Shown here is a 326-nucleotide RNA from Lophotis ruficrista, a member of the family "7SK RNA".
NCBI's taxonomy places the organism under Eukaryota, Opisthokonta, Tetrapoda, Coelurosauria, Lophotis.
The family is grouped with related families in Rfam's "7SK clan".
By type it is a non-coding RNA gene.
For this family Rfam cites "Transcription: surprising role for an elusive small nuclear RNA" (Blencowe, Curr Biol, 2002).
The match comes from Rfam's covariance-model search (270 bits).
RNA sequence: AUGUGAGGGCAAUCUGGCUGUGACAUCUGUCACCCCAUUGAUUGCCAGGGUUGAUUCAGCUGAUCUGGUUGGCUAGACAGGUGUCCCCUUCCUCCCUCACUGCUCCAUGUGCUUCCCUGCCAAAGCUGCAUACUCAGUCGAAGAGGACGACCUUCCCUCAUAGUAGUGUACUCGUUCAUUGGUCAAGGGUGUACAGUAGCUGUGCUUCCCUGCUAGAACCUCCAAACCAGCACAAGGUCCAUCUGUAGGAGAAGGUAGGGUAGGCAAGCUUCCAAGACUGCAGACACAUCCAAGUGAGGUGCUGCAUAGGGCAGUCUACCCUUCUU
Numbered sequence: 001a002u003g004u005g006a007g008g009g010c011a012a013u014c015u016g017g018c019u020g021u022g023a024c025a026u027c028u029g030u031c032a033c034c035c036c037a038u039u040g041a042u043u044g045c046c047a048g049g050g051u052u053g054a055u056u057c058a059g060c061u062g063a064u065c066u067g068g069u070u071g072g073c074u075a076g077a078c079a080g081g082u083g084u085c086c087c088c089u090u091c092c093u094c095c096c097u098c099a100c101u102g103c104u105c106c107a108u109g110u111g112c113u114u115c116c117c118u119g120c121c122a123a124a125g126c127u128g129c130a131u132a133c134u135c136a137g138u139c140g141a142a143g144a145g146g147a148c149g150a151c152c153u154u155c156c157c158u159c160a161u162a163g164u165a166g167u168g169u170a171c172u173c174g175u176u177c178a179u180u181g182g183u184c185a186a187g188g189g190u191g192u193a194c195a196g197u198a199g200c201u202g203u204g205c206u207u208c209c210c211u212g213c214u215a216g217a218a219c220c221u222c223c224a225a226a227c228c229a230g231c232a233c234a235a236g237g238u239c240c241a242u243c244u245g246u247a248g249g250a251g252a253a254g255g256u257a258g259g260g261u262a263g264g265c266a267a268g269c270u271u272c273c274a275a276g277a278c279u280g281c282a283g284a285c286a287c288a289u290c291c292a293a294g295u296g297a298g299g300u301g302c303u304g305c306a307u308a309g310g311g312c313a314g315u316c317u318a319c320c321c322u323u324c325u326u
Stems, first nucleotide, its partner, number of pairs: 001104001003100007012090001016088002022085010033072002035068003040065004044060002115168001116166001120137001123134001125133001138160001140158001145156003199269003205263002208260006220251004226246002230242001293326002296322001298320003301315005